[Rfam]
RNA sequence: GUACGAAAACGGCAAAGUCAUUGAAAAAUGAUGACGCAAAGCUAUAGGGGCUAAAGCAGAACAUGCAAAGCCAGCCAGCUCCCGAA
Dot-bracket structure: ...........((...((((((....))))))...))..((((...(((((....(((.....)))...)))..))))))......
Numbered sequence: 001g002u003a004c005g006a007a008a009a010c011g012g013c014a015a016a017g018u019c020a021u022u023g024a025a026a027a028a029u030g031a032u033g034a035c036g037c038a039a040a041g042c043u044a045u046a047g048g049g050g051c052u053a054a055a056g057c058a059g060a061a062c063a064u065g066c067a068a069a070g071c072c073a074g075c076c077a078g079c080u081c082c083c084g085a086a
Stems, first nucleotide, its partner, number of pairs: 012037002017032006040080004047076002049072003056066003